[Rfam]
RNA sequence: AGCCAAUGAUGACAAGCUAAACUAAACUUUUCUGACACCUACUAUGAGAGCUGUGCUGCAGCUCCUGAUUCUAAUGUUCACACUGAGGCUU
Numbered sequence: 001a002g003c004c005a006a007u008g009a010u011g012a013c014a015a016g017c018u019a020a021a022c023u024a025a026a027c028u029u030u031u032c033u034g035a036c037a038c039c040u041a042c043u044a045u046g047a048g049a050g051c052u053g054u055g056c057u058g059c060a061g062c063u064c065c066u067g068a069u070u071c072u073a074a075u076g077u078u079c080a081c082a083c084u085g086a087g088g089c090u091u
Base pairs, nucleotide, nucleotide: 001090002089003088004087050062051061052060053059054058
Notes:
The record is a 91-nucleotide RNA sequence from Takifugu flavidus, which matches "Small nucleolar RNA SNORD60" in Rfam. On this family, see Galardi et al., Mol Cell Biol 2002: "Purified box C/D snoRNPs are able to reproduce site-specific 2'-O-methylation of target RNA in vitro". Taxonomically the source falls in Takifugu (Eukaryota, Teleostomi, Actinopteri, Eurypterygia).